[Rfam]
Nucleotides: 302
Base pairs, nucleotide, nucleotide: 001046002045003044004023005022006021007020008019010017028043029042030041048300049299050298052296060289061288063286064285068279069278070277071276072275073274074273080271081270083268084267085266086265087264088263089262090261091260094258095257096256097255099253103252104251105250106249107248108247109246110245111241112240114239115238116237117236118235120232121231122230123229124228125227126226127225129170130169131168132167134165135164136163137162138161141158142157146155148153172176179222181220182219183218188215189214190213191212192211197206198205199204
Number, partner (000 for none) and nucleotide at each position: 001046g002045c003044c004023g005022g006021g007020c008019a009000g010017g011000g012000u013000g014000g015000c016000a017010u018000g019008u020007g021006c022005c023004u024000g025000u026000u027000u028043u029042u030041c031000c032000a033000g034000c035000u036000a037000c038000u039000c040000a041030g042029g043028a044003g045002g046001c047000u048300g049299a050298g051000c052296c053000c054000a055000c056000c057000a058000g059000a060289u061288u062000g063286c064285u065000u066000g067000a068279g069278c070277c071276c072275a073274g074273g075000a076000g077000u078000u079000c080271u081270g082000g083268g084267c085266u086265g087264c088263a089262g090261u091260g092000c093000a094258c095257u096256a097255u098000g099253c100000c101000a102000a103252g104251c105250g106249g107248g108247c109246a110245u111241c112240u113000g114239c115238a116237c117236u118235a119000a120232g121231g122230c123229u124228g125227g126226c127225a128000u129170c130169a131168a132167u133000a134165u135164g136163g137162u138161g139000g140000c141158c142157u143000g144000u145000a146155c147000g148153g149000g150000g151000a152000a153148c154000a155146g156000a157142g158141g159000c160000g161138c162137a163136c164135c165134a166000g167132g168131u169130u170129g171000a172176c173000u174000a175000a176172g177000g178000a179222g180000a181220g182219g183218u184000g185000a186000a187000c188215u189214g190213g191212c192211c193000c194000a195000g196000g197206u198205c199204g200000g201000a202000g203000a204199c205198g206197g207000a208000g209000c210000a211192g212191g213190u214189c215188a216000a217000a218183g219182c220181u221000c222179u223000c224000c225127u226126g227125c228124c229123g230122g231121u232120c233000a234000g235118u236117a237116g238115u239114g240112g241111g242000a243000u244000c245110a246109u247108g248107c249106c250105u251104g252103u253099g254000a255097a256096u257095a258094g259000c260091c261090a262089c263088u264087g265086c266085a267084g268083c269000a270081u271080a272000u273074c274073c275072u276071g277070g278069g279068c280000a281000a282000c283000a284000c285064a286063g287000a288061g289060a290000g291000a292000c293000a294000c295000c296052g297000a298050u299049u300048c301000c302000u
Rfam assigns this 302-nucleotide sequence from Urocolius indicus to the family "Metazoan signal recognition particle RNA". Rfam describes the family as follows. The signal recognition particle (SRP) is a universally conserved ribonucleoprotein. The family's RNA type in Rfam is non-coding RNA gene. For this family Rfam cites "Structural and energetic analysis of RNA recognition by a universally conserved protein from the signal recognition particle" (Batey et al., J Mol Biol, 2001).